Rfam assigns this 70-nucleotide sequence from Bos taurus to the family "mir-1814 microRNA precursor family". Its family is annotated with miRNA-mediated post-transcriptional gene silencing and RISC complex in the Gene Ontology.
RNA sequence: CUUGCGUUUUGUUUGGGUUUGUUUUCAACAGGCUUGUAAAGGUUGUUGAUGUGCCAAACCUGAACAGCCU
Numbered sequence: 001c002u003u004g005c006g007u008u009u010u011g012u013u014u015g016g017g018u019u020u021g022u023u024u025u026c027a028a029c030a031g032g033c034u035u036g037u038a039a040a041g042g043u044u045g046u047u048g049a050u051g052u053g054c055c056a057a058a059c060c061u062g063a064a065c066a067g068c069c070u
Stems, first nucleotide, its partner, number of pairs: 009067013025049007033041003